The record is an 86-nucleotide sequence from Eptatretus burgeri, which matches "Selenocysteine transfer RNA" in Rfam. Lineage of the source: Eukaryota > Metazoa > Eumetazoa > Eptatretinae > Eptatretus. It scores 75 bits against the family's covariance model.
RNA sequence: GCCUGGAUGACCCUCGGUGGUCCGGGGUGCAGGCUUCAAACCUGUAGCUGCUUAGCCGCAGAGUGGUUCAAUUCCACCUUCCGGGC
Numbered sequence: 001g002c003c004u005g006g007a008u009g010a011c012c013c014u015c016g017g018u019g020g021u022c023c024g025g026g027g028u029g030c031a032g033g034c035u036u037c038a039a040a041c042c043u044g045u046a047g048c049u050g051c052u053u054a055g056c057c058g059c060a061g062a063g064u065g066g067u068u069c070a071a072u073u074c075c076a077c078c079u080u081c082c083g084g085g086c
Stems, first nucleotide, its partner, number of pairs: 001086007009078001012027006028046006048061004063077004